[Rfam]
RNA sequence: UAACCCGUGCAGAGAUGUACGGCUGAACCGGCAGGAGUCAGCAGAGGCCAUAGUACUUGCAAGGAGACGUCCAAGCAGGGAAGGGC
Dot-bracket structure: ((..(((((((....))))))).))............((....)).(((......(((((..............)))))....)))

Annotation:
The family of this 86-nucleotide sequence from Desulforamulus hydrothermalis is "Group II catalytic intron D1-D4-1". It scores 70 bits against the family's covariance model. For this family Rfam cites "The ins and outs of group II introns" (Bonen and Vogel, Trends Genet, 2001). The organism belongs to Desulforamulus hydrothermalis, within Bacteria. Rfam describes the family as follows. Group II introns are found in rRNA, tRNA and mRNA of organelles in fungi, plants and protists, and also in mRNA in bacteria.